Shown here is a 50-nucleotide sequence, a member of the family "Plastid-ccsA-ndhD-2 3UTR RNA". Rfam's curators put it in the seed alignment. For this family Rfam cites "Retrograde signaling in plants: A critical review focusing on the GUN pathway and beyond" (Richter et al., Plant Commun, 2023).
RNA sequence: AUUGUGAGAACCUUUUGAAUCAUUGUACUACUUGAUUCAAAAGGUUCUUG
Numbered sequence: 001a002u003u004g005u006g007a008g009a010a011c012c013u014u015u016u017g018a019a020u021c022a023u024u025g026u027a028c029u030a031c032u033u034g035a036u037u038c039a040a041a042a043g044g045u046u047c048u049u050g
Base pairs, nucleotide, nucleotide: 005050006049007048008047009046010045011044012043013042014041015040016039017038018037019036020035021034022033